[Rfam]
RNA: ZMP/ZTP riboswitch aptamer (pfl RNA motif)
Organism: Gracilinema caldarium
RNA sequence: UCUAGGACGAGCGACUGGCGUCACAAGAUGGUAAACCAUCGGGGAGCUUCCACAAGGGUCCGAUCGCACGCCUGGGCCGGACAC
Numbered sequence: 001u002c003u004a005g006g007a008c009g010a011g012c013g014a015c016u017g018g019c020g021u022c023a024c025a026a027g028a029u030g031g032u033a034a035a036c037c038a039u040c041g042g043g044g045a046g047c048u049u050c051c052a053c054a055a056g057g058g059u060c061c062g063a064u065c066g067c068a069c070g071c072c073u074g075g076g077c078c079g080g081a082c083a084c
Base pairs, nucleotide, nucleotide: 003055005053009049010048011047012046015043016042017072018071019070020069021068028039029038030037031036061079062078064076065075